c-di-GMP-I-GGC riboswitch aptamer: a 79-nucleotide RNA from Methylomonas sp. DH-1. Taxonomically the source falls in Methylomonas (Bacteria, Pseudomonadota, Gammaproteobacteria, Methylococcaceae). The match comes from Rfam's covariance-model search (65 bits).

[Rfam]
RNA sequence: AUUGCAAUUGCCAAACCCGUUGCGAAGCGGGGACGGAAAGCCACGGGUCUUGGAUGUCGAGACAGCCGGGUUGCCGCCA
Numbered sequence: 001a002u003u004g005c006a007a008u009u010g011c012c013a014a015a016c017c018c019g020u021u022g023c024g025a026a027g028c029g030g031g032g033a034c035g036g037a038a039a040g041c042c043a044c045g046g047g048u049c050u051u052g053g054a055u056g057u058c059g060a061g062a063c064a065g066c067c068g069g070g071u072u073g074c075c076g077c078c079a
Base pairs, nucleotide, nucleotide: 003076004075011036012035016031017030018029019028020027021026034065039072040071041070042069044068045067046066047063048062049061